[Rfam]
RNA: Group II catalytic intron D1-D4-2
Organism: Pseudolycoriella hygida
RNA sequence: GAAGGUAGGUCCUUCGCAGUCGAUUUACAGGAAUAGGCUGCAAACCACUGUAUGCGGCAAUUGUUUAAGGGCAUUGUCGUGAGCGAUGCAGAAAAGGCAUCCUUGAGGUGUCAGGU
Numbered sequence: 001g002a003a004g005g006u007a008g009g010u011c012c013u014u015c016g017c018a019g020u021c022g023a024u025u026u027a028c029a030g031g032a033a034u035a036g037g038c039u040g041c042a043a044a045c046c047a048c049u050g051u052a053u054g055c056g057g058c059a060a061u062u063g064u065u066u067a068a069g070g071g072c073a074u075u076g077u078c079g080u081g082a083g084c085g086a087u088g089c090a091g092a093a094a095a096g097g098c099a100u101c102c103u104u105g106a107g108g109u110g111u112c113a114g115g116u
Base pairs, nucleotide, nucleotide: 001015002014003013004012005011016041017040018039019038020037021036023034024033025032026031046115048091049090050089051088052087053086054080055079057077058076059075061073064070096112097111098110099109100108101107